RNA sequence: AGUUCUUCACUGGCAAGCUUUAUGUCCUUGUGUACCAGCUAAAGCUGCCAGCUGAAGAACUGU
Dot-bracket structure: ..((((((...(((.(((((((.................))))))))))....))))))....
Numbered sequence: 001a002g003u004u005c006u007u008c009a010c011u012g013g014c015a016a017g018c019u020u021u022a023u024g025u026c027c028u029u030g031u032g033u034a035c036c037a038g039c040u041a042a043a044g045c046u047g048c049c050a051g052c053u054g055a056a057g058a059a060c061u062g063u
Stems, first nucleotide, its partner, number of pairs: 003059006012049003016046007
mir-22 microRNA precursor family: a 63-nucleotide RNA from Ictalurus punctatus.
Gene Ontology terms of the family: miRNA-mediated post-transcriptional gene silencing and RISC complex.
A reference for the family is Lagos-Quintana et al. (2001), "Identification of novel genes coding for small expressed RNAs", Science.
NCBI's taxonomy places the organism under Eukaryota, Vertebrata, Actinopteri, Otomorpha, Ictalurus.